RNA sequence: CUACAAUCAAUUAAGCUACCCAGUUCUUUUCUAGUGGGGCCUGGUGUGCAAUGGCUGCAAACAGCAGCAUCCUAGGUAAUGUACAGCAGCCUGUUCCUUGUGUGCAAUAGCCUUUGCCAUUGAACAUUU
Dot-bracket structure: .(.((..............(((((((..........)))).)))..)).).........................((..........((.(((((..........))))).))..........))....
Rfam assigns this 129-nucleotide RNA sequence from Rhinopithecus bieti to the family "Small nucleolar RNA SNORA70". By type it is an H/ACA-box small nucleolar RNA. NCBI's taxonomy places the organism under Eukaryota, Mammalia, Theria, Euarchontoglires, Rhinopithecus. snoRNA U70 seems to be exclusive to mammals and is a member of the H/ACA class of snoRNA which contain H (ANANNA) and ACA box motifs. H/ACA box snoRNAs are involved in the conversion of uridines to pseudouridines (5-ribosyluracil) a constituent of structural RNAs (transfer, ribosomal, small nuclear, and small nucleolar). It scores 61 bits against the family's covariance model. The literature on the family includes a 2000 paper in IUBMB Life by Charette and Gray, "Pseudouridine in RNA: what, where, how, and why".